Source information:
The family of this 83-nucleotide RNA sequence from Virgibacillus salinus is "c-di-GMP-I riboswitch aptamer". Lineage of the source: Bacteria > Bacillati > Bacilli > Bacillaceae > Virgibacillus. Rfam describes the family as follows. GEMM was predicted in a large-scale screen for bacterial structured RNA regulatory elements.
[Rfam]
RNA sequence: CUCUGACAAUAGCAAAUUCAUUGAAAAAUGAAGACGCAAAACUACGGACCUAAGGCAUUAGCUAAGGCUGCCGAGUUACCGAA
Numbered sequence: 001c002u003c004u005g006a007c008a009a010u011a012g013c014a015a016a017u018u019c020a021u022u023g024a025a026a027a028a029u030g031a032a033g034a035c036g037c038a039a040a041a042c043u044a045c046g047g048a049c050c051u052a053a054g055g056c057a058u059u060a061g062c063u064a065a066g067g068c069u070g071c072c073g074a075g076u077u078a079c080c081g082a083a
Stems, first nucleotide, its partner, number of pairs: 012037002017032006040077004045073003049067002055062002